Rfam assigns this 35-nucleotide RNA from Pimephales promelas to the family "Iron response element I". Rfam 15.1 lists 6,829 matches to the family in 599 species. The sequence is in the family's curated seed alignment. Its family is annotated with response to iron ion in the Gene Ontology. The literature on the family includes a 1987 paper in Science by Hentze et al., "Identification of the iron-responsive element for the translational regulation of human ferritin mRNA". The source organism's lineage runs through Eukaryota, Chordata, Actinopterygii, Ostariophysi and Pimephales.

[Rfam]
RNA sequence: GAGGGUCUUGCUUCAACAGUGAUUGAACGGAACUC
Numbered sequence: 001g002a003g004g005g006u007c008u009u010g011c012u013u014c015a016a017c018a019g020u021g022a023u024u025g026a027a028c029g030g031a032a033c034u035c
Base pairs, nucleotide, nucleotide: 001035002034003033006031007030008029010028012027013026014025015024016023017021